RNA: Streptomyces sRNA 4677
Organism: Streptomyces qinglanensis
RNA sequence: CGUCCCGGUGCUCCGCGACAUCACAGACGUAAAGAACCAGCGAAGCACCGUGCCAAGCCCACCAACCUCCCGUAACCCACGAGAGUGAAGGAAGUGAACUCGGCUCGCUUUCCCGCCCGUUCGCUGGAAUAGGCUCCAGUCGAGCACCCGCUCCAUCCGUACGACGUCGAAACGGCGACCGCACGAGAAUCCGCACGUCAACCGCACGACGACCGCACGACGACCGCACACAUACAACGGCCCCCGGCCGGGACUGCCAUCCCGAUCGAGGGCCUGACCACCGAGGAAGAAGAGCCUUCCCC
Numbered sequence: 001c002g003u004c005c006c007g008g009u010g011c012u013c014c015g016c017g018a019c020a021u022c023a024c025a026g027a028c029g030u031a032a033a034g035a036a037c038c039a040g041c042g043a044a045g046c047a048c049c050g051u052g053c054c055a056a057g058c059c060c061a062c063c064a065a066c067c068u069c070c071c072g073u074a075a076c077c078c079a080c081g082a083g084a085g086u087g088a089a090g091g092a093a094g095u096g097a098a099c100u101c102g103g104c105u106c107g108c109u110u111u112c113c114c115g116c117c118c119g120u121u122c123g124c125u126g127g128a129a130u131a132g133g134c135u136c137c138a139g140u141c142g143a144g145c146a147c148c149c150g151c152u153c154c155a156u157c158c159g160u161a162c163g164a165c166g167u168c169g170a171a172a173c174g175g176c177g178a179c180c181g182c183a184c185g186a187g188a189a190u191c192c193g194c195a196c197g198u199c200a201a202c203c204g205c206a207c208g209a210c211g212a213c214c215g216c217a218c219g220a221c222g223a224c225c226g227c228a229c230a231c232a233u234a235c236a237a238c239g240g241c242c243c244c245c246g247g248c249c250g251g252g253a254c255u256g257c258c259a260u261c262c263c264g265a266u267c268g269a270g271g272g273c274c275u276g277a278c279c280a281c282c283g284a285g286g287a288a289g290a291a292g293a294g295c296c297u298u299c300c301c302c
Stems, first nucleotide, its partner, number of pairs: 007282004016072002073088001075086002078083001103214001105212003239274005245268002250263004285300005